[Rfam]
This 99-nucleotide RNA from Pan troglodytes belongs to the Rfam family "mir-658 microRNA precursor family". Its family is annotated with RISC complex and miRNA-mediated post-transcriptional gene silencing in the Gene Ontology. The source organism's lineage runs through Eukaryota, Opisthokonta, Hominoidea, Hominidae and Pan.
RNA sequence: GCUCGGUUGCCGUGGUUGCGGGCCCGGCCCGCCCGCCAGCUCGCUGACAGCACGACUCAGGGCGGAGGGAAGUAGGUCCGUUGGCCGGUUGGGAACGAG
Numbered sequence: 001g002c003u004c005g006g007u008u009g010c011c012g013u014g015g016u017u018g019c020g021g022g023c024c025c026g027g028c029c030c031g032c033c034c035g036c037c038a039g040c041u042c043g044c045u046g047a048c049a050g051c052a053c054g055a056c057u058c059a060g061g062g063c064g065g066a067g068g069g070a071a072g073u074a075g076g077u078c079c080g081u082u083g084g085c086c087g088g089u090u091g092g093g094a095a096c097g098a099g
Base pairs, nucleotide, nucleotide: 002099003098004097005096007095008094010092011091012090013087014086015085016084018081019080020079021078022077023076024075025072028069029068030067033065034064035063036062037061038057039056040054043051044050045049